[Rfam]
Small nucleolar RNA R38: a 78-nucleotide RNA from Dipodomys ordii. Gene Ontology terms of the family: nucleolus and RNA processing. Rfam's curators write: snoR38 is a C/D box small nucleolar RNA conserved across yeast, human, Arabidopsis and rice. It is encoded in the intron of elongation factor-1 gamma in both pombe and cerevisiae. snoR38 guides the methylation of 2'-O-ribose sites in 28S rRNA. The family has 19 seed sequences and 2,295 matches in Rfam 15.1. The family's consensus secondary structure was predicted with PFOLD. It is annotated as a C/D-box small nucleolar RNA. The match comes from Rfam's covariance-model search (56 bits). NCBI's taxonomy places the organism under Eukaryota, Chordata, Sarcopterygii, Euarchontoglires, Dipodomys.
RNA sequence: UUGAGCCAAGGAUAAUUUGAAGUUAUCCCUGUCUGAGAAGAUGUUUUGUGUGAGGAGUUCUGAGUUACUGAGGCUCAG
Numbered sequence: 001u002u003g004a005g006c007c008a009a010g011g012a013u014a015a016u017u018u019g020a021a022g023u024u025a026u027c028c029c030u031g032u033c034u035g036a037g038a039a040g041a042u043g044u045u046u047u048g049u050g051u052g053a054g055g056a057g058u059u060c061u062g063a064g065u066u067a068c069u070g071a072g073g074c075u076c077a078g
Stems, first nucleotide, its partner, number of pairs: 001078007